[Rfam]
Rfam assigns this 62-nucleotide RNA from Callithrix jacchus to the family "U7 small nuclear RNA".
Animal histone pre-mRNAs are spliced by a different mechanism than nuclear pre-mRNAs and self-splicing introns. This processing involves the U7 snRNP, which contains only one RNA species: U7.
It scores 64 bits against the family's covariance model.
Rfam 15.1 lists 10,439 matches to the family in 569 species.
RNA sequence: UACUGUUACAGCUCUUUUAGAAUUUGUCUAGCAGGCUUUCUGGUUUUUGCCAAAAAGCUACC
Numbered sequence: 001u002a003c004u005g006u007u008a009c010a011g012c013u014c015u016u017u018u019a020g021a022a023u024u025u026g027u028c029u030a031g032c033a034g035g036c037u038u039u040c041u042g043g044u045u046u047u048u049g050c051c052a053a054a055a056a057g058c059u060a061c062c
Stems, first nucleotide, its partner, number of pairs: 034059006041052004